The record is a 107-nucleotide sequence from Anaeromicrobium sediminis, which matches "Glycine riboswitch aptamer" in Rfam. Taxonomically the source falls in Anaeromicrobium (Bacteria, Clostridia, Peptostreptococcales, Thermotaleaceae). Its family is annotated with glycine biosynthetic process in the Gene Ontology.
RNA sequence: UUGAUGGGUGUGGGAGAGAACUAAAAUUAGUCGCCGAAGGGACAAACAAACUAUGUUAUUGCCAACUGGUUUGUGAAUUUUUCAGGCAAAAGGACCGUACUCUGACA
Numbered sequence: 001u002u003g004a005u006g007g008g009u010g011u012g013g014g015a016g017a018g019a020a021c022u023a024a025a026a027u028u029a030g031u032c033g034c035c036g037a038a039g040g041g042a043c044a045a046a047c048a049a050a051c052u053a054u055g056u057u058a059u060u061g062c063c064a065a066c067u068g069g070u071u072u073g074u075g076a077a078u079u080u081u082u083c084a085g086g087c088a089a090a091a092g093g094a095c096c097g098u099a100c101u102c103u104g105a106c107a
Stems, first nucleotide, its partner, number of pairs: 006102008020031004033087003036083002040081003046074008